[Rfam]
RNA sequence: GGUCGCAAGUUGAAGGCUGAAGCAGAAGCAUUUGUGGAGCAGCUUGUCAGAUUCCAAGGAAUCUGUGAAUUCUGCU
Number, nucleotide and partner (000 for none) at each position: 001g000002g000003u000004c000005g000006c000007a000008a000009g000010u000011u000012g000013a044014a000015g000016g043017c042018u041019g000020a000021a076022g075023c074024a073025g072026a071027a070028g040029c039030a000031u000032u000033u000034g000035u000036g000037g000038a000039g029040c028041a018042g017043c016044u013045u000046g000047u000048c065049a064050g063051a062052u061053u060054c059055c000056a000057a000058g000059g054060a053061a052062u051063c050064u049065g048066u000067g000068a000069a000070u027071u026072c025073u024074g023075c022076u021
Annotation:
Rfam assigns this 76-nucleotide RNA from Crocodylus porosus to the family "Mammalian CPEB3 ribozyme". The family's consensus secondary structure is taken from published work.